The record is a 299-nucleotide RNA from Brassica oleracea, which matches "Group I catalytic intron" in Rfam.

[Rfam]
RNA sequence: UUUCUAUGGUCUGAUCAUGGCCAAAACUGUAGUGAACCUAUGGUUAAAAAUCGUCAAAUUGCGGGAACACCCUAAAGGAAUCUUAACCAAGUAAGUAUGGUAACAUAACUUAUGGCACAGGUAAUGACUCGUGGUAUGGUAAAAUCAAGAUUUAUUAUUCAAUGGGCAAUCCGCAGCCAAGUACCAAUAUUUAUAACAUGUUAUAAAUAAGGGUAUGCAGUUCAUCGACUAGAUGGUGAUUGGUGUUAUUAAUAUUAAUAAUGCUUAAGGUAUAGUCAGACCCCGGCUGAAAAGACGCA
Numbered sequence: 001u002u003u004c005u006a007u008g009g010u011c012u013g014a015u016c017a018u019g020g021c022c023a024a025a026a027c028u029g030u031a032g033u034g035a036a037c038c039u040a041u042g043g044u045u046a047a048a049a050a051u052c053g054u055c056a057a058a059u060u061g062c063g064g065g066a067a068c069a070c071c072c073u074a075a076a077g078g079a080a081u082c083u084u085a086a087c088c089a090a091g092u093a094a095g096u097a098u099g100g101u102a103a104c105a106u107a108a109c110u111u112a113u114g115g116c117a118c119a120g121g122u123a124a125u126g127a128c129u130c131g132u133g134g135u136a137u138g139g140u141a142a143a144a145u146c147a148a149g150a151u152u153u154a155u156u157a158u159u160c161a162a163u164g165g166g167c168a169a170u171c172c173g174c175a176g177c178c179a180a181g182u183a184c185c186a187a188u189a190u191u192u193a194u195a196a197c198a199u200g201u202u203a204u205a206a207a208u209a210a211g212g213g214u215a216u217g218c219a220g221u222u223c224a225u226c227g228a229c230u231a232g233a234u235g236g237u238g239a240u241u242g243g244u245g246u247u248a249u250u251a252a253u254a255u256u257a258a259u260a261a262u263g264c265u266u267a268a269g270g271u272a273u274a275g276u277c278a279g280a281c282c283c284c285g286g287c288u289g290a291a292a293a294g295a296c297g298c299a
Base pairs, nucleotide, nucleotide: 001006019038020037049241050240051239052238053237055235056234060175061174062173063172064171065170070166071165072164176221177220181216182215183214184213188209189208190207191206192205193204194203225278227277228276229275230274231273243264244263245262246261247260248259249258250257251256284297285296287294288293
Rfam describes the family as follows. Group I catalytic introns are large self-splicing ribozymes.